This 72-nucleotide RNA from Nocardia sp. NRRL S-836 belongs to the Rfam family "ASpks TB sRNA". The match comes from Rfam's covariance-model search (72 bits).
RNA sequence: CUUGAUCGAGCCGAGGUACAGCGGCUCCUCGGCACGCUCCUGGCCGUAGGUGGCGAGCAGCGCCUGCGCCUC
Numbered sequence: 001c002u003u004g005a006u007c008g009a010g011c012c013g014a015g016g017u018a019c020a021g022c023g024g025c026u027c028c029u030c031g032g033c034a035c036g037c038u039c040c041u042g043g044c045c046g047u048a049g050g051u052g053g054c055g056a057g058c059a060g061c062g063c064c065u066g067c068g069c070c071u072c
Stems, first nucleotide, its partner, number of pairs: 014026002017023001032067002035062002040057002044053003

Pairs were carried over by alignment from the consensus structure, which is taken from published work. On this family, see Arnvig and Young, Mol Microbiol 2009: "Identification of small RNAs in Mycobacterium tuberculosis". By type it is an antisense RNA.